[Rfam]
RNA sequence: AUGCCAUCCGGAGCGACUGAGAGACCUGGCUCUACGACGUCGCAGCAACCACCCGCUGGAUGCGGGCAGGUGCUAACGCCAGGACCGAUGGAGG
Numbered sequence: 001a002u003g004c005c006a007u008c009c010g011g012a013g014c015g016a017c018u019g020a021g022a023g024a025c026c027u028g029g030c031u032c033u034a035c036g037a038c039g040u041c042g043c044a045g046c047a048a049c050c051a052c053c054c055g056c057u058g059g060a061u062g063c064g065g066g067c068a069g070g071u072g073c074u075a076a077c078g079c080c081a082g083g084a085c086c087g088a089u090g091g092a093g094g
Stems, first nucleotide, its partner, number of pairs: 002093001004091005013043005021032003026082004044074004049070002052066004078086001
Rfam assigns this 94-nucleotide RNA from Lentzea aerocolonigenes to the family "SAM riboswitch aptamer (S box leader)". About the family: The SAM riboswitch is found upstream of a number of genes which code for proteins involved in methionine or cysteine biosynthesis in Gram-positive bacteria. Gene Ontology term of the family: regulation of gene expression.